[Rfam]
Nucleotides: 127
Stems, first nucleotide, its partner, number of pairs: 002052004016043004021038001026035003069120005077111001079109003083105002086102002089099001
Number, partner (000 for none) and nucleotide at each position: 001000a002052c003051u004050g005049g006000g007000a008000c009000c010000g011000g012000c013000u014000g015000u016043g017042u018041g019040g020000u021038c022000a023000a024000a025000c026035g027034a028033a029000g030000a031000g032000g033028u034027u035026u036000u037000u038021g039000u040019c041018c042017a043016c044000u045000g046000u047000u048000g049005c050004c051003a052002g053000c054000u055000u056000c057000c058000u059000a060000g061000a062000g063000u064000g065000a066000a067000g068000u069120g070119g071118g072117g073116g074000u075000c076000u077111c078000u079109g080108u081107c082000u083105g084104c085000u086102u087101u088000a089099g090000g091000a092000g093000a094000g095000c096000c097000g098000g099089c100000c101087a102086g103000c104084g105083c106000a107081g108080a109079u110000c111077g112000u113000u114000c115000c116073c117072c118071u119070c120069c121000a122000g123000a124000c125000a126000u127000g